[Rfam]
RNA sequence: UGACAAGUGACUACUUGGAUUCCCCUUCAAGAUGUCAUGUGUGAUGUUAUAUCGAGUUUUGUU
Numbered sequence: 001u002g003a004c005a006a007g008u009g010a011c012u013a014c015u016u017g018g019a020u021u022c023c024c025c026u027u028c029a030a031g032a033u034g035u036c037a038u039g040u041g042u043g044a045u046g047u048u049a050u051a052u053c054g055a056g057u058u059u060u061g062u063u
Base pairs, nucleotide, nucleotide: 002063003062004061005060